[Rfam]
RNA sequence: AGAAAUGACAAGGAGGCCAUGACAGAAGCACUCCUGGCAUAGCCUGUCAGAUUCCAAUGAAUCUGUAAAUUCUGCU
Numbered sequence: 001a002g003a004a005a006u007g008a009c010a011a012g013g014a015g016g017c018c019a020u021g022a023c024a025g026a027a028g029c030a031c032u033c034c035u036g037g038c039a040u041a042g043c044c045u046g047u048c049a050g051a052u053u054c055c056a057a058u059g060a061a062u063c064u065g066u067a068a069a070u071u072c073u074g075c076u
Stems, first nucleotide, its partner, number of pairs: 015044003021076001023074005028040001048065007
RNA: Mammalian CPEB3 ribozyme
Organism: Alligator sinensis